A member of the RNA family "Bacterial small subunit ribosomal RNA" from Sphingobacterium sp. JB170, 351 nucleotides of a longer RNA.
Rfam 15.1 lists 42,628 matches to the family in 10,626 species.
[Rfam]
RNA sequence: GGUUUAAAGGGUGCGUAGGCGGCCUGUUAAGUCAGGAGUGAAAUACGGCAGCUCAACUGUCGCAGUGCUCUUGAUACUGAUAGGCUUGAAUGUCGCUGAAGAUGGCGGAAUGAGACAAGUAGCGGUGAAAUGCAUAGAUAUGUCUCAGAACACCGAUUGCGAAGGCAGCUGUCUAAACGAUUAUUGACGCUGAUGCACGAAAGCGUGGGGAUCAAACAGGAUUAGAUACCCUGGUAGUCCACGCCCUAAACGAUGAUAACUCGAUGUUAGCGAUAUACUGUUAGCGUCCCAGCGAAAGCGUUAAGUUAUCCACCUGGGGAGUACGCCCGCAAGGGUGAAACUCAAAGGAAU
Numbered sequence: 001g002g003u004u005u006a007a008a009g010g011g012u013g014c015g016u017a018g019g020c021g022g023c024c025u026g027u028u029a030a031g032u033c034a035g036g037a038g039u040g041a042a043a044u045a046c047g048g049c050a051g052c053u054c055a056a057c058u059g060u061c062g063c064a065g066u067g068c069u070c071u072u073g074a075u076a077c078u079g080a081u082a083g084g085c086u087u088g089a090a091u092g093u094c095g096c097u098g099a100a101g102a103u104g105g106c107g108g109a110a111u112g113a114g115a116c117a118a119g120u121a122g123c124g125g126u127g128a129a130a131u132g133c134a135u136a137g138a139u140a141u142g143u144c145u146c147a148g149a150a151c152a153c154c155g156a157u158u159g160c161g162a163a164g165g166c167a168g169c170u171g172u173c174u175a176a177a178c179g180a181u182u183a184u185u186g187a188c189g190c191u192g193a194u195g196c197a198c199g200a201a202a203g204c205g206u207g208g209g210g211a212u213c214a215a216a217c218a219g220g221a222u223u224a225g226a227u228a229c230c231c232u233g234g235u236a237g238u239c240c241a242c243g244c245c246c247u248a249a250a251c252g253a254u255g256a257u258a259a260c261u262c263g264a265u266g267u268u269a270g271c272g273a274u275a276u277a278c279u280g281u282u283a284g285c286g287u288c289c290c291a292g293c294g295a296a297a298g299c300g301u302u303a304a305g306u307u308a309u310c311c312a313c314c315u316g317g318g319g320a321g322u323a324c325g326c327c328c329g330c331a332a333g334g335g336u337g338a339a340a341c342u343c344a345a346a347g348g349a350a351u
Stems, first nucleotide, its partner, number of pairs: 001314003009311001011198004016192001018191003022085007030078002032074009046062006089185003092181004097176001100174007107151001111147007122133003159166002203244006213237001217233004255310006263288010292299002316343003325336004
Pairs were carried over by alignment from the consensus structure, which is taken from published work.